[Rfam]
Record summary:
Rfam assigns this 99-nucleotide sequence from Cryobacterium sp. SO1 to the family "mraW RNA".

RNA sequence: UCUAGCUCCUGGUGCCCGACUCCCAGCCGUUGCCCUCCUGACACACUUCCCCGGUGCCAGGCGGAACGGAUGGGGAUCCGGCCCCAGGAUCCAGCCCCG
Numbered sequence: 001u002c003u004a005g006c007u008c009c010u011g012g013u014g015c016c017c018g019a020c021u022c023c024c025a026g027c028c029g030u031u032g033c034c035c036u037c038c039u040g041a042c043a044c045a046c047u048u049c050c051c052c053g054g055u056g057c058c059a060g061g062c063g064g065a066a067c068g069g070a071u072g073g074g075g076a077u078c079c080g081g082c083c084c085c086a087g088g089a090u091c092c093a094g095c096c097c098c099g
Stems, first nucleotide, its partner, number of pairs: 010086003014082003018078002021075005027069004034064002037061004042056003